[Rfam]
RNA sequence: AAAAGACAUAGAGGUCGCAACCAAUAAGAGUAAUUAGUGGAGCCGGUAGGCAGAGAAACUAGUGAAAGGAGCGGUUGCCGAAAUUUCGACUAUGACGGUAGUUGAAAUUGGUCUAAACGUUAAUAGCGUUUGGAUUGUCACAGCAAAAUUUGUCUGCUGUGGAGCGCUAUCGAUAAU
Numbered sequence: 001a002a003a004a005g006a007c008a009u010a011g012a013g014g015u016c017g018c019a020a021c022c023a024a025u026a027a028g029a030g031u032a033a034u035u036a037g038u039g040g041a042g043c044c045g046g047u048a049g050g051c052a053g054a055g056a057a058a059c060u061a062g063u064g065a066a067a068g069g070a071g072c073g074g075u076u077g078c079c080g081a082a083a084u085u086u087c088g089a090c091u092a093u094g095a096c097g098g099u100a101g102u103u104g105a106a107a108u109u110g111g112u113c114u115a116a117a118c119g120u121u122a123a124u125a126g127c128g129u130u131u132g133g134a135u136u137g138u139c140a141c142a143g144c145a146a147a148a149u150u151u152g153u154c155u156g157c158u159g160u161g162g163a164g165c166g167c168u169a170u171c172g173a174u175a176a177u
Stems, first nucleotide, its partner, number of pairs: 008170004017078006025070001033063006082109012110136011138162007
Overview: Lysine riboswitch aptamer: a 177-nucleotide RNA sequence from Weissella oryzae. Rfam links the family to the GO term lysine biosynthetic process. A search with the family's covariance model found it, with a score of 108 bits.